[Rfam]
RNA sequence: CCGAGAGGGUCGUCAGAGCGGCGCUGAAAAGGCGACCGCUAGUGGGGCCUCGCGCCCUGCGACACUGUCAAAUUGCGGGGACUUCCUAGAGCCUUCUGCUACCGCGGCCAGCCGGAAACGGCCGGUGCAGCACCCGGGUUAGCGGCCCGGGGGAUGGUAACAACGCAGCUGGUACGGGAUGACCGCGCAGCCAAGCCCUACGUCUCCCCCACGGGAGAUAGGGGUGCAGUUCAACGACUAAAUGGCAGUGGGUUCGGGGGGUACCGCGGUACGCACCCGGGCUUAAGAUAUAGUCUACGGCGGGCCGAAAGGCCAGU
Numbered sequence: 001c002c003g004a005g006a007g008g009g010u011c012g013u014c015a016g017a018g019c020g021g022c023g024c025u026g027a028a029a030a031g032g033c034g035a036c037c038g039c040u041a042g043u044g045g046g047g048c049c050u051c052g053c054g055c056c057c058u059g060c061g062a063c064a065c066u067g068u069c070a071a072a073u074u075g076c077g078g079g080g081a082c083u084u085c086c087u088a089g090a091g092c093c094u095u096c097u098g099c100u101a102c103c104g105c106g107g108c109c110a111g112c113c114g115g116a117a118a119c120g121g122c123c124g125g126u127g128c129a130g131c132a133c134c135c136g137g138g139u140u141a142g143c144g145g146c147c148c149g150g151g152g153g154a155u156g157g158u159a160a161c162a163a164c165g166c167a168g169c170u171g172g173u174a175c176g177g178g179a180u181g182a183c184c185g186c187g188c189a190g191c192c193a194a195g196c197c198c199u200a201c202g203u204c205u206c207c208c209c210c211a212c213g214g215g216a217g218a219u220a221g222g223g224g225u226g227c228a229g230u231u232c233a234a235c236g237a238c239u240a241a242a243u244g245g246c247a248g249u250g251g252g253u254u255c256g257g258g259g260g261g262u263a264c265c266g267c268g269g270u271a272c273g274c275a276c277c278c279g280g281g282c283u284u285a286a287g288a289u290a291u292a293g294u295c296u297a298c299g300g301c302g303g304g305c306c307g308a309a310a311g312g313c314c315a316g317u
Stems, first nucleotide, its partner, number of pairs: 006025002009022005031037001063250005069244002074189004078184002084179004190230002195225004203218005234296001236295005252282007260274001303314004
Dot-bracket structure: .....((.(((((....))))).)).....(.....).........................(((((.((...((((((....((((........................................................................................))))...)).))))((...((((....(((((......)))))...))))...))...[.[[[[[..)).))))).(((((((.(.............).)))))))........]]]]]]......((((....))))...

The family of this 317-nucleotide RNA from Colletotrichum trifolii is "Group I catalytic intron". On this family, see Cech, Annu Rev Biochem 1990: "Self-splicing of group I introns". Rfam 15.1 lists 5,602 matches to the family in 1,395 species. NCBI's taxonomy places the organism under Eukaryota, sordariomyceta, Hypocreomycetidae, Glomerellaceae, Colletotrichum orbiculare species complex.